[Rfam]
RNA sequence: AAGAGAAGUCAGUGAUGGUUUUAACCCAAAAUGUCUAUACCUGUCUGAAGCAUCUUAGUGAUGCAGUCUUUUUGUCAUUCUGAGACUUCUCUGAGA
Numbered sequence: 001a002a003g004a005g006a007a008g009u010c011a012g013u014g015a016u017g018g019u020u021u022u023a024a025c026c027c028a029a030a031a032u033g034u035c036u037a038u039a040c041c042u043g044u045c046u047g048a049a050g051c052a053u054c055u056u057a058g059u060g061a062u063g064c065a066g067u068c069u070u071u072u073u074g075u076c077a078u079u080c081u082g083a084g085a086c087u088u089c090u091c092u093g094a095g096a
Stems, first nucleotide, its partner, number of pairs: 004090007